Description:
Shown here is a 135-nucleotide RNA from Mycobacterium kansasii, a member of the family "Group II catalytic intron D1-D4-4". Rfam describes the family as follows. Group II introns are found in rRNA, tRNA and mRNA of organelles in fungi, plants and protists, and also in mRNA in bacteria. Rfam links the family to the GO term Group II intron splicing. The literature on the family includes a 2001 paper in Trends Genet by Bonen and Vogel, "The ins and outs of group II introns".

RNA sequence: UUGCGGGUGGAAGUCGCGUCCCGGUAGGCACCGGAGCGCCGGGUAGGGGGCCCCGGUUCGUCGUUGAGAGGCGGCGGGCUAAGCGGGGUGUCGAAAGCCUCUUUGGAGGGAUCGAGUGCAUGGGCUGUAGCGGUA
Numbered sequence: 001u002u003g004c005g006g007g008u009g010g011a012a013g014u015c016g017c018g019u020c021c022c023g024g025u026a027g028g029c030a031c032c033g034g035a036g037c038g039c040c041g042g043g044u045a046g047g048g049g050g051c052c053c054c055g056g057u058u059c060g061u062c063g064u065u066g067a068g069a070g071g072c073g074g075c076g077g078g079c080u081a082a083g084c085g086g087g088g089u090g091u092c093g094a095a096a097g098c099c100u101c102u103u104u105g106g107a108g109g110g111a112u113c114g115a116g117u118g119c120a121u122g123g124g125c126u127g128u129a130g131c132g133g134u135a
Stems, first nucleotide, its partner, number of pairs: 020043005050089005055080006064071002098109004113127002